A member of the RNA family "Small nucleolar RNA SNORD103/SNORD85" from Clytia hemisphaerica, 77 nucleotides long.
RNA sequence: AUUGGCUAUGAUGAACUUACUUGCCCUCAAUGAUACAUUAGUUUGCUUCAUGAUUAUUUAUAUUUUUCUGAGUCAAU
Numbered sequence: 001a002u003u004g005g006c007u008a009u010g011a012u013g014a015a016c017u018u019a020c021u022u023g024c025c026c027u028c029a030a031u032g033a034u035a036c037a038u039u040a041g042u043u044u045g046c047u048u049c050a051u052g053a054u055u056a057u058u059u060a061u062a063u064u065u066u067u068c069u070g071a072g073u074c075a076a077u
Base pairs, nucleotide, nucleotide: 001077002076003075004074005073006072
The literature on the family includes a 2001 paper in EMBO J by Huttenhofer et al., "RNomics: an experimental approach that identifies 201 candidates for novel, small, non-messenger RNAs in mouse". The pairing is the family consensus, mapped onto this sequence. Gene Ontology terms of the family: RNA processing and nucleolus. The organism belongs to Clytia, within Eukaryota.